[Rfam]
This 327-nucleotide sequence from Acetobacter sp. DsW_54 belongs to the Rfam family "Alphaproteobacteria transfer-messenger RNA". Rfam classes the family as a non-coding RNA gene. Bacterial tmRNA, also known as 10Sa RNA or SsrA, is named for its dual tRNA and mRNA-like properties. Its role is to liberate the mRNA from a stalled ribosome. To accomplish this part of the tmRNA is used as a reading frame that ends in a translation stop signal. The broken mRNA is replaced in the ribosome by the tmRNA and translation of the tmRNA leads to addition of a proteolysis tag to the incomplete protein enabling recognition by a protease. Clan: tRNA clan. NCBI's taxonomy places the organism under Bacteria, Pseudomonadota, Alphaproteobacteria, Acetobacteraceae, Acetobacter. For this family Rfam cites "Phylogenetic analysis of tmRNA secondary structure" (Williams and Bartel, RNA, 1996). The family's consensus secondary structure is taken from published work.

RNA sequence: GCGCUUGCAUUUUGGAAGCCAAGUUCCUAUGUGUGGGGUGCCGGAAGAUUUCUUGCGGCUAUGGCAAUAAACGGGAUGUGGCAUAGGCGUAGUGGACCCGGGGGCGGUACCCGGCGUCUCCACCAUAAAUCCGGAUCGCAAGACCCGGACAGAUGGGGACGAAACAGGCUCGACACGCGCAGUAAAGACAUCUUUUUUGCCCGGUAUUGUACCACCGUUAUCGGGCUAAUUUUACAAGUGCCAAUGAUAACACUGAGGUGCUCGCUGUUGCUGCAUAAGCAAUAAGCGCGGUUCGGGAGGGCACCGGGCAACAGAAGCCCUCCCACU
Number, nucleotide and partner (000 for none) at each position: 001g000002c000003g000004c000005u000006u000007g000008c000009a000010u000011u000012u000013u000014g000015g000016a000017a000018g000019c000020c000021a000022a000023g000024u000025u000026c000027c000028u000029a000030u000031g000032u000033g000034u000035g000036g000037g000038g000039u000040g059041c058042c057043g056044g000045a000046a000047g000048a000049u000050u000051u000052c000053u000054u000055g000056c043057g042058g041059c040060u000061a000062u000063g201064g200065c199066a198067a197068u000069a000070a000071a000072c000073g194074g193075g192076a191077u190078g189079u188080g000081g000082c000083a000084u000085a000086g000087g000088c179089g178090u177091a000092g176093u175094g174095g000096a000097c000098c114099c113100g112101g111102g110103g000104g000105c000106g000107g000108u000109a000110c102111c101112c100113g099114g098115c161116g160117u159118c158119u157120c156121c155122a000123c000124c000125a000126u000127a000128a000129a000130u000131c000132c000133g000134g000135a000136u000137c000138g000139c000140a000141a000142g000143a000144c000145c000146c000147g000148g000149a000150c000151a000152g000153a000154u000155g121156g120157g119158g118159a117160c116161g115162a000163a000164a000165c000166a000167g000168g000169c000170u000171c000172g000173a000174c094175a093176c092177g090178c089179g088180c000181a000182g000183u000184a000185a000186a000187g000188a079189c078190a077191u076192c075193u074194u073195u000196u000197u067198u066199g065200c064201c063202c217203g216204g215205u214206a000207u228208u000209g226210u000211a000212c224213c223214a205215c204216c203217g202218u000219u000220a000221u000222c000223g213224g212225g000226c209227u000228a207229a000230u000231u000232u000233u000234a000235c000236a000237a000238g000239u000240g000241c000242c000243a000244a000245u000246g000247a000248u000249a000250a000251c000252a000253c000254u000255g000256a000257g000258g000259u000260g000261c000262u000263c000264g000265c000266u000267g000268u000269u000270g000271c000272u000273g000274c000275a000276u000277a000278a000279g000280c000281a000282a000283u000284a000285a000286g000287c000288g000289c306290g305291g304292u303293u000294c000295g000296g323297g322298a321299g320300g319301g318302c000303a292304c291305c290306g289307g000308g000309c000310a000311a000312c000313a000314g000315a000316a000317g000318c301319c300320c299321u298322c297323c296324c000325a000326c000327u000